[Rfam]
RNA sequence: GACCUCUUUCGGGGCGGGGCGAAAUUCCCCACCGGCGGUAAGUUCUCCCGAACAAGCCCGCGAAGCCCGCGCAAACCGCACCACGCGCCGGGCCCGAUGCCGCGCAACUCGGCAGCCGACGGUCACAGUCCGGACGAAAGAAGGAGGAG
Numbered sequence: 001g002a003c004c005u006c007u008u009u010c011g012g013g014g015c016g017g018g019g020c021g022a023a024a025u026u027c028c029c030c031a032c033c034g035g036c037g038g039u040a041a042g043u044u045c046u047c048c049c050g051a052a053c054a055a056g057c058c059c060g061c062g063a064a065g066c067c068c069g070c071g072c073a074a075a076c077c078g079c080a081c082c083a084c085g086c087g088c089c090g091g092g093c094c095c096g097a098u099g100c101c102g103c104g105c106a107a108c109u110c111g112g113c114a115g116c117c118g119a120c121g122g123u124c125a126c127a128g129u130c131c132g133g134a135c136g137a138a139a140g141a142a143g144g145a146g147g148a149g
Base pairs, nucleotide, nucleotide: 003147004146005145006144007143008142009141010140017029018028019027031129032128033118034117035061036060037059038058056116057115065093066092067091068090069089098114099113100112101111102110120132121131122130

The record is a 149-nucleotide sequence from Deinococcus radiodurans, which matches "FMN riboswitch aptamer (RFN element)" in Rfam.
The match comes from Rfam's covariance-model search (95 bits).
The organism belongs to Deinococcus radiodurans, within Bacteria.